The family of this 50-nucleotide sequence from Streptomyces dysideae is "Guanidine-II riboswitch aptamer (mini-ykkC)". NCBI's taxonomy places the organism under Bacteria, Bacillati, Actinomycetota, Streptomycetaceae, Streptomyces. The base pairs follow the family's consensus structure, which is taken from published work.

[Rfam]
RNA sequence: CUGCGGGGACGACCUCGCAGACGUCAACCCCGCCGGGGACGGGCGCCCCG
Numbered sequence: 001c002u003g004c005g006g007g008g009a010c011g012a013c014c015u016c017g018c019a020g021a022c023g024u025c026a027a028c029c030c031c032g033c034c035g036g037g038g039a040c041g042g043g044c045g046c047c048c049c050g
Stems, first nucleotide, its partner, number of pairs: 001020008034050005

Simpler in structure and has fewer highly conserved nucleotide positions than the ykkC-yxkD leader. Despite this each of its two stem-loop structures directly bind free guanidine. Therefore, mini-ykkC RNA motif represents a distinct class of guanidine-sensing RNAs.